[Rfam]
RNA sequence: CGACCGGCAUCGCGAGAUGACGGGAUGCUUAUGCAGAAGUCAGCAGAGGGCAUAGUAGGUGAGGACGGGGACGGUGAGUCCAGAAAUCCUGCCGAAGGCC
Numbered sequence: 001c002g003a004c005c006g007g008c009a010u011c012g013c014g015a016g017a018u019g020a021c022g023g024g025a026u027g028c029u030u031a032u033g034c035a036g037a038a039g040u041c042a043g044c045a046g047a048g049g050g051c052a053u054a055g056u057a058g059g060u061g062a063g064g065a066c067g068g069g070g071a072c073g074g075u076g077a078g079u080c081c082a083g084a085a086a087u088c089c090u091g092c093c094g095a096a097g098g099c100c
Stems, first nucleotide, its partner, number of pairs: 001027002004023003008019004040047002049100003058093003
Rfam assigns this 100-nucleotide sequence from Noviherbaspirillum saxi to the family "Group II catalytic intron D1-D4-1". The pairing is the family consensus, mapped onto this sequence. Group II introns are found in rRNA, tRNA and mRNA of organelles in fungi, plants and protists, and also in mRNA in bacteria. Lineage of the source: Bacteria > Pseudomonadati > Pseudomonadota > Oxalobacteraceae > Noviherbaspirillum.